[Rfam]
RNA sequence: UAAAGAACUCUUGCAGUCUUAGAUGUUAUAAAAAAUAUAUAUAUCUGAAUUGUAAGAGUUGUUAGCAC
Numbered sequence: 001u002a003a004a005g006a007a008c009u010c011u012u013g014c015a016g017u018c019u020u021a022g023a024u025g026u027u028a029u030a031a032a033a034a035a036u037a038u039a040u041a042u043a044u045c046u047g048a049a050u051u052g053u054a055a056g057a058g059u060u061g062u063u064a065g066c067a068c
Base pairs, nucleotide, nucleotide: 003063004062006060007059008058009057010056011055012054013053014052015051016050017049019048020047021046022045023044024043025042026041028040029039030038
This 68-nucleotide sequence from Bos taurus belongs to the Rfam family "mir-4680 microRNA precursor family". Pairs were carried over by alignment from the consensus structure, which was predicted with RNAalifold. NCBI's taxonomy places the organism under Eukaryota, Eumetazoa, Mammalia, Ruminantia, Bos.